[Rfam]
Description:
Rfam assigns this 181-nucleotide RNA sequence from Comamonas antarctica to the family "Manganese Mn2+ riboswitch aptamer (yybP-ykoY)". For this family Rfam cites "The ubiquitous yybP-ykoY riboswitch is a manganese-responsive regulatory element" (Dambach et al., Mol Cell, 2015). It scores 52 bits against the family's covariance model. From the family's description: This RNA was originally discovered in E. coli during a large scale screen and was named SraF. The family was later found to exist upstream of related families of protein genes in many bacteria, including the the yybP and ykoK genes in B. subtilis. The specific functions of these proteins are unknown, but this structured RNA element may be involved in their genetic regulation as a riboswitch. Lineage of the source: Bacteria > Pseudomonadota > Burkholderiales > Comamonadaceae > Comamonas.

RNA sequence: CGGCUUGUCUUUGGGGAGUAGCCCGUCCGGUGCGCAACGCACCGGAGGCAUGCAUCAACAAACUUGGGUUCUCACAACCUAUGGUGCAUGCGGUUCGCGCUGGGCGAGACCAUUGGCUGGGUGCCGAUCCACAUGGCCGGAGUCGGGGCGCAGCCAAUGCUUUCGCAUCUGUGUCCGGCCU
Numbered sequence: 001c002g003g004c005u006u007g008u009c010u011u012u013g014g015g016g017a018g019u020a021g022c023c024c025g026u027c028c029g030g031u032g033c034g035c036a037a038c039g040c041a042c043c044g045g046a047g048g049c050a051u052g053c054a055u056c057a058a059c060a061a062a063c064u065u066g067g068g069u070u071c072u073c074a075c076a077a078c079c080u081a082u083g084g085u086g087c088a089u090g091c092g093g094u095u096c097g098c099g100c101u102g103g104g105c106g107a108g109a110c111c112a113u114u115g116g117c118u119g120g121g122u123g124c125c126g127a128u129c130c131a132c133a134u135g136g137c138c139g140g141a142g143u144c145g146g147g148g149c150g151c152a153g154c155c156a157a158u159g160c161u162u163u164c165g166c167a168u169c170u171g172u173g174u175c176c177g178g179c180c181u
Stems, first nucleotide, its partner, number of pairs: 026046009048091010065081005